[Rfam]
RNA sequence: CCCGCCACUGUACCGGUCUGUCCCGUGACCCGAGUUUAGUCCAGUGGAGGCUCAGAGCGACCCGGCUUUAGGAAACAGGGCGGCCCGCGCCGAUGGACCGUUCUGUGCCGAAAAGUCCGGAACAAAU
Numbered sequence: 001c002c003c004g005c006c007a008c009u010g011u012a013c014c015g016g017u018c019u020g021u022c023c024c025g026u027g028a029c030c031c032g033a034g035u036u037u038a039g040u041c042c043a044g045u046g047g048a049g050g051c052u053c054a055g056a057g058c059g060a061c062c063c064g065g066c067u068u069u070a071g072g073a074a075a076c077a078g079g080g081c082g083g084c085c086c087g088c089g090c091c092g093a094u095g096g097a098c099c100g101u102u103c104u105g106u107g108c109c110g111a112a113a114a115g116u117c118c119g120g121a122a123c124a125a126a127u
Base pairs, nucleotide, nucleotide: 005047006046007045008044009043010042018034019033020030021028022027062120063119064118065117066115067114068113069112071109072108076105077104078103079102080101081100085096086095
Small nucleolar RNA SNORA65: a 127-nucleotide RNA from Cyprinodon variegatus.
It scores 91 bits against the family's covariance model.
The source organism's lineage runs through Eukaryota, Gnathostomata, Euacanthomorphacea, Ovalentaria and Cyprinodon.
U65 belongs to the H/ACA class of snoRNAs which are thought to guide the sites of modification of uridines to pseudouridines.
Pairs were carried over by alignment from the consensus structure, which was predicted with RNAalifold.
Rfam classes the family as an H/ACA-box small nucleolar RNA.
On this family, see Huttenhofer et al., EMBO J 2001: "RNomics: an experimental approach that identifies 201 candidates for novel, small, non-messenger RNAs in mouse".